[Rfam]
RNA sequence: GCAUGGACGAAUUCUGCGUUAGCUUUUCCCAGUAGCUAAUGCAGUCAGACACUAUGCAAGAACAUGUUCCCUUUUCACACACGGAUUGGUAUGCUUUUGUUUGGAAAUGGGCAUGCCCGUGAAAGUGGGAUACAU
Numbered sequence: 001g002c003a004u005g006g007a008c009g010a011a012u013u014c015u016g017c018g019u020u021a022g023c024u025u026u027u028c029c030c031a032g033u034a035g036c037u038a039a040u041g042c043a044g045u046c047a048g049a050c051a052c053u054a055u056g057c058a059a060g061a062a063c064a065u066g067u068u069c070c071c072u073u074u075u076c077a078c079a080c081a082c083g084g085a086u087u088g089g090u091a092u093g094c095u096u097u098u099g100u101u102u103g104g105a106a107a108u109g110g111g112c113a114u115g116c117c118c119g120u121g122a123a124a125g126u127g128g129g130a131u132a133c134a135u
Stems, first nucleotide, its partner, number of pairs: 001057006014044006069129003072125007088117009
The family of this 135-nucleotide sequence from Crypturellus soui is "Small nucleolar RNA SNORA15". The source organism's lineage runs through Eukaryota, Craniata, Euteleostomi, Sauria and Crypturellus. Its family is annotated with nucleolus and RNA processing in the Gene Ontology. Rfam describes the family as follows. ACA15 is a member of the H/ACA class of snoRNA that guide the sites of modification of uridines to pseudouridines. The family's RNA type in Rfam is H/ACA-box small nucleolar RNA. The literature on the family includes a 2001 paper in EMBO J by Huttenhofer et al., "RNomics: an experimental approach that identifies 201 candidates for novel, small, non-messenger RNAs in mouse". The match comes from Rfam's covariance-model search (78 bits).